[Rfam]
A member of the RNA family "mir-135 microRNA precursor family" from Aquarana catesbeiana, 87 nucleotides long. The family's consensus secondary structure was predicted with PFOLD.

RNA sequence: CCCCAUGCUGUGGUAUAUGGCUUUUUAUUCCUAUGUGAUUGAAUUUCUACCUCGCAUAGGGCUGAAAGCCAUGAACCGCACAUGGGA
Numbered sequence: 001c002c003c004c005a006u007g008c009u010g011u012g013g014u015a016u017a018u019g020g021c022u023u024u025u026u027a028u029u030c031c032u033a034u035g036u037g038a039u040u041g042a043a044u045u046u047c048u049a050c051c052u053c054g055c056a057u058a059g060g061g062c063u064g065a066a067a068g069c070c071a072u073g074a075a076c077c078g079c080a081c082a083u084g085g086g087a
Stems, first nucleotide, its partner, number of pairs: 002086006009080006016073009027063001029061010